[Rfam]
The family of this 84-nucleotide RNA from Haemonchus contortus is "mir-5897 microRNA precursor family". Its family is annotated with miRNA-mediated post-transcriptional gene silencing and RISC complex in the Gene Ontology. The organism belongs to Haemonchus, within Eukaryota.
RNA sequence: GGGUUGGAGAUUCAGUCCCAGAUAAUGCGUACAAAGUCCGACUAUAGGAGGUUUUGUAUGCCUUAUCUGGAAUUGAUCACAACC
Number, nucleotide and partner (000 for none) at each position: 001g000002g084003g083004u082005u081006g080007g000008a000009g000010a000011u000012u076013c075014a074015g073016u072017c000018c070019c069020a068021g067022a066023u065024a064025a063026u000027g061028c060029g059030u058031a057032c056033a055034a054035a053036g052037u000038c051039c050040g000041a000042c047043u000044a000045u000046a000047g042048g000049a000050g039051g038052u036053u035054u034055u033056g032057u031058a030059u029060g028061c027062c000063u025064u024065a023066u022067c021068u020069g019070g018071a000072a016073u015074u014075g013076a012077u000078c000079a000080c006081a005082a004083c003084c002